SAM riboswitch aptamer (S box leader): a 103-nucleotide sequence from Aquimarina intermedia.
RNA sequence: AUGUUAUCAAGAAAGGCGGAGGGAAUAGACCCUGCGAAGCCUUAGCAACCCUUUAUCUGUUAAAGAAGGUGCUACAUUCUAUCCCUUAGGGAAUAGAUAACUC
Numbered sequence: 001a002u003g004u005u006a007u008c009a010a011g012a013a014a015g016g017c018g019g020a021g022g023g024a025a026u027a028g029a030c031c032c033u034g035c036g037a038a039g040c041c042u043u044a045g046c047a048a049c050c051c052u053u054u055a056u057c058u059g060u061u062a063a064a065g066a067a068g069g070u071g072c073u074a075c076a077u078u079c080u081a082u083c084c085c086u087u088a089g090g091g092a093a094u095a096g097a098u099a100a101c102u103c
Stems, first nucleotide, its partner, number of pairs: 003101006013043005021032003026081004044073004049069002051065004077095001082092004

It scores 82 bits against the family's covariance model. Lineage of the source: Bacteria > Bacteroidota > Flavobacteriia > Flavobacteriales > Aquimarina.